Overview
The record is an 83-nucleotide RNA from Muraenolepis orangiensis, which matches "Small nucleolar RNA SNORD35" in Rfam.
[Rfam]
RNA sequence: UGUAAAUGAUGUUUUAUCACGAUGGUCUUCCUAGCCUUCUGGUUUUGACGACACCGCCUUAUGGCACUAGCUGAUGCAGUCAU
Number, nucleotide and partner (000 for none) at each position: 001u078002g077003u076004a075005a000006a000007u000008g000009a000010u000011g000012u000013u000014u000015u000016a000017u000018c000019a000020c000021g000022a000023u000024g000025g000026u000027c000028u000029u000030c000031c000032u000033a000034g000035c000036c000037u000038u000039c000040u000041g000042g000043u000044u000045u000046u000047g000048a000049c000050g000051a000052c000053a000054c000055c000056g000057c000058c000059u000060u000061a000062u000063g000064g000065c000066a000067c000068u000069a000070g000071c000072u000073g000074a000075u004076g003077c002078a001079g000080u000081c000082a000083u000

About the family: U35 is a C/D box snoRNA located in intron 6 of ribosomal protein L13A and intron 3 of ribosomal protein S11 in humans and at homologous positions in mouse and chicken ribosomal protein genes. U35 guides the methylation of 2'-O-ribose sites in 28S rRNA. The literature on the family includes a 1996 paper in J Mol Biol by Nicoloso et al., "Intron-encoded, antisense small nucleolar RNAs: the characterization of nine novel species points to their direct role as guides for the 2'-O-ribose methylation of rRNAs". Gene Ontology terms of the family: nucleolus and RNA processing. The family's RNA type in Rfam is C/D-box small nucleolar RNA. The family has 8 seed sequences and 1,842 matches in Rfam 15.1. Lineage of the source: Eukaryota > Eumetazoa > Acanthomorphata > Muraenolepidoidei > Muraenolepis.